[Rfam]
This 68-nucleotide RNA from Flavobacterium sp. GT3R68 belongs to the Rfam family "Flavo-1 RNA".
A search with the family's covariance model found it, with a score of 55 bits.
It is annotated as a small RNA.
The base pairs follow the family's consensus structure, which is taken from published work.

RNA sequence: AAUUAGCCCUGAUGGAAGCGGCAUCCCGCGCUUUUUCUGCGUGGAUAUAGCGGACAGCAGGAAUUCAG
Numbered sequence: 001a002a003u004u005a006g007c008c009c010u011g012a013u014g015g016a017a018g019c020g021g022c023a024u025c026c027c028g029c030g031c032u033u034u035u036u037c038u039g040c041g042u043g044g045a046u047a048u049a050g051c052g053g054a055c056a057g058c059a060g061g062a063a064u065u066c067a068g
Base pairs, nucleotide, nucleotide: 009060010059011058013056014055018051019050023046024045025044026043028042029041030040031039